[Rfam]
RNA sequence: GAUAUGCGAUGAAGCGAGAGGUUGCCGCACCCAGUGCGGGUAAUUUUCGCUGAGUAUGUCCGAUUUUAAACCGGGCGACAC
Numbered sequence: 001g002a003u004a005u006g007c008g009a010u011g012a013a014g015c016g017a018g019a020g021g022u023u024g025c026c027g028c029a030c031c032c033a034g035u036g037c038g039g040g041u042a043a044u045u046u047u048c049g050c051u052g053a054g055u056a057u058g059u060c061c062g063a064u065u066u067u068a069a070a071c072c073g074g075g076c077g078a079c080a081c
Stems, first nucleotide, its partner, number of pairs: 014050003018047004025039005057080004064075003
RNA: S10-Clostridia ribosomal protein leader
Organism: Acetanaerobacterium elongatum